A member of the RNA family "Small Cajal body specific RNA 3" from Hipposideros armiger, 140 nucleotides long. Lineage of the source: Eukaryota > Bilateria > Chordata > Tetrapoda > Hipposideros. The family's consensus secondary structure was predicted with RNAalifold. scaRNAs are a specific class of small nuclear RNAs which localise to the Cajal bodies and guide the modification of RNA polymerase II transcribed spliceosomal RNAs U1, U2, U4, U5 and U12. The match comes from Rfam's covariance-model search (154 bits). A reference for the family is Darzacq et al. (2002), "Cajal body-specific small nuclear RNAs: a novel class of 2'-O-methylation and pseudouridylation guide RNAs", EMBO J.
[Rfam]
RNA sequence: AAUGGAACCUGCAGGAACCAACCAUGUGGACAAAUGAAAAGUGCCUUUUGUCUGCAGAUUGCAGGGCUCCUACAUAAACAUGGAGGUCUCUGUCUGGCUCAGGACAGCUGACUAAGCCUGAUCGUUCCCCUCCAUACAGC
Numbered sequence: 001a002a003u004g005g006a007a008c009c010u011g012c013a014g015g016a017a018c019c020a021a022c023c024a025u026g027u028g029g030a031c032a033a034a035u036g037a038a039a040a041g042u043g044c045c046u047u048u049u050g051u052c053u054g055c056a057g058a059u060u061g062c063a064g065g066g067c068u069c070c071u072a073c074a075u076a077a078a079c080a081u082g083g084a085g086g087u088c089u090c091u092g093u094c095u096g097g098c099u100c101a102g103g104a105c106a107g108c109u110g111a112c113u114a115a116g117c118c119u120g121a122u123c124g125u126u127c128c129c130c131u132c133c134a135u136a137c138a139g140c
Stems, first nucleotide, its partner, number of pairs: 004070003008065005025056007036047002082133005090124001092122003096118004101113002